[Rfam]
Nucleotides: 141
Base pairs, nucleotide, nucleotide: 006069009065010064011063024057027054029052030051035048036047083134084133085132086131087130091125093123094122098118099117100116101115102114103113
Number, partner (000 for none) and nucleotide at each position: 001000u002000c003000u004000a005000a006069a007000a008000a009065c010064u011063g012000a013000u014000a015000c016000c017000a018000u019000u020000u021000a022000c023000u024057u025000a026000a027054a028000a029052a030051c031000a032000a033000u034000c035048a036047a037000a038000c039000a040000a041000a042000a043000u044000a045000c046000c047036u048035u049000u050000u051030g052029u053000c054027u055000a056000c057024a058000g059000a060000a061000a062000g063011c064010a065009g066000c067000a068000a069006u070000c071000c072000u073000a074000c075000a076000u077000a078000a079000a080000c081000g082000a083134g084133g085132a086131g087130g088000u089000c090000u091125c092000u093123g094122u095000g096000u097000g098118a099117c100116u101115u102114a103113g104000a105000a106000c107000a108000g109000c110000u111000g112000g113103c114102u115101a116100a117099g118098u119000g120000g121000g122094a123093u124000c125091g126000u127000u128000c129000c130087c131086u132085u133084c134083c135000a136000c137000a138000c139000a140000c141000u

Shown here is a 141-nucleotide RNA sequence from Castor canadensis, a member of the family "Small Cajal body specific RNA 3". The family is grouped with related families in Rfam's "SCARNA3 clan". scaRNAs are a specific class of small nuclear RNAs which localise to the Cajal bodies and guide the modification of RNA polymerase II transcribed spliceosomal RNAs U1, U2, U4, U5 and U12. Its family is annotated with Cajal body, nucleolus and RNA processing in the Gene Ontology.